About this RNA: The family of this 128-nucleotide sequence from Vibrio thalassae is "Gammaprotebacteria rimP leader". Its family is annotated with regulation of gene expression in the Gene Ontology. For this family Rfam cites "Premature terminator analysis sheds light on a hidden world of bacterial transcriptional attenuation" (Naville and Gautheret, Genome Biol, 2010). The base pairs follow the family's consensus structure, which is taken from published work.

[Rfam]
RNA sequence: UAUUUUUUCUUAGUGAUCAGGGUCCAGCAACAAAUAACCCCGACUAUCGGGGUUUUUUGUUAUUUGAGCUUUUUGAAAACGCUCAGAUAAAUGCUUGGAAUUUAAAUUGGGCUAUAUGCCCUUUUUUU
Numbered sequence: 001u002a003u004u005u006u007u008u009c010u011u012a013g014u015g016a017u018c019a020g021g022g023u024c025c026a027g028c029a030a031c032a033a034a035u036a037a038c039c040c041c042g043a044c045u046a047u048c049g050g051g052g053u054u055u056u057u058u059g060u061u062a063u064u065u066g067a068g069c070u071u072u073u074u075g076a077a078a079a080c081g082c083u084c085a086g087a088u089a090a091a092u093g094c095u096u097g098g099a100a101u102u103u104a105a106a107u108u109g110g111g112c113u114a115u116a117u118g119c120c121c122u123u124u125u126u127u128u
Stems, first nucleotide, its partner, number of pairs: 034056001036054007109121004
Lineage of the source: Bacteria > Pseudomonadati > Pseudomonadota > Gammaproteobacteria > Vibrio.